This 59-nucleotide RNA sequence from Clostridium botulinum belongs to the Rfam family "DUF3800-VIII RNA".
[Rfam]
RNA sequence: AAUACCCUGUAUAACUGAAAUCUUAAUACUUGAGACAUUAGUAGGUUAUAUGGGGUAUU
Numbered sequence: 001a002a003u004a005c006c007c008u009g010u011a012u013a014a015c016u017g018a019a020a021u022c023u024u025a026a027u028a029c030u031u032g033a034g035a036c037a038u039u040a041g042u043a044g045g046u047u048a049u050a051u052g053g054g055g056u057a058u059u
Stems, first nucleotide, its partner, number of pairs: 001059016021035006
Lineage of the source: Bacteria > Bacillati > Bacillota > Clostridia > Clostridium botulinum.
Bacteroidetes, Cyanobacteria, Firmicutes, Planctomycetes (1 example), Proteobacteria, Tenericutes (1 example).